[Rfam]
RNA: Small nucleolar RNA SNORA71
RNA sequence: CCCUGCGUUCGUAAGUGAUCAGGGAUACCCAUGCCCUGACCAUUGGUAGUGCAGGCAGAGGAAAUGUGGAAAGAACUGUCCCGUGCUUGGAAGGUCCACACCCAUGCCUUCCAAUGCUGGGAGCUUUCCCACA
Numbered sequence: 001c002c003c004u005g006c007g008u009u010c011g012u013a014a015g016u017g018a019u020c021a022g023g024g025a026u027a028c029c030c031a032u033g034c035c036c037u038g039a040c041c042a043u044u045g046g047u048a049g050u051g052c053a054g055g056c057a058g059a060g061g062a063a064a065u066g067u068g069g070a071a072a073g074a075a076c077u078g079u080c081c082c083g084u085g086c087u088u089g090g091a092a093g094g095u096c097c098a099c100a101c102c103c104a105u106g107c108c109u110u111c112c113a114a115u116g117c118u119g120g121g122a123g124c125u126u127u128c129c130c131a132c133a
Stems, first nucleotide, its partner, number of pairs: 002055008014044004019039006066130001068129006085117002088114001090111005